[Rfam]
Background: This 78-nucleotide RNA sequence from Sus scrofa belongs to the Rfam family "Mammalian CPEB3 ribozyme". The family's consensus secondary structure is taken from published work. NCBI's taxonomy places the organism under Eukaryota, Gnathostomata, Amniota, Laurasiatheria, Sus. Its family is annotated with RNA nuclease activity in the Gene Ontology.
RNA sequence: AGAGGAUAACUGGCAGCCACAGUAGAAGCAUUCACAUUGUGGUCCAUGUCAGAUUCUGGUGAAUUUGCAAAUUCUGCU
Numbered sequence: 001a002g003a004g005g006a007u008a009a010c011u012g013g014c015a016g017c018c019a020c021a022g023u024a025g026a027a028g029c030a031u032u033c034a035c036a037u038u039g040u041g042g043u044c045c046a047u048g049u050c051a052g053a054u055u056c057u058g059g060u061g062a063a064u065u066u067g068c069a070a071a072u073u074c075u076g077c078u
Stems, first nucleotide, its partner, number of pairs: 011046003016043003021078007028040003050067007